[Rfam]
Nucleotides: 056
Stems, first nucleotide, its partner, number of pairs: 010052002013049004028045006
Number, partner (000 for none) and nucleotide at each position: 001000u002000u003000c004000c005000c006000u007000g008000c009000c010052u011051u012000a013049u014048c015047u016046a017000c018000c019000a020000a021000g022000g023000a024000u025000c026000g027000u028045c029044g030043g031042g032041c033040a034000c035000g036000u037000a038000c039000c040033u041032g042031c043030c044029c045028g046016u047015g048014g049013a050000a051011a052010g053000g054000a055000a056000u
This 56-nucleotide sequence from Propionibacterium freudenreichii belongs to the Rfam family "msiK RNA". Pairs were carried over by alignment from the consensus structure, which is taken from published work. It is annotated as a cis-regulatory element.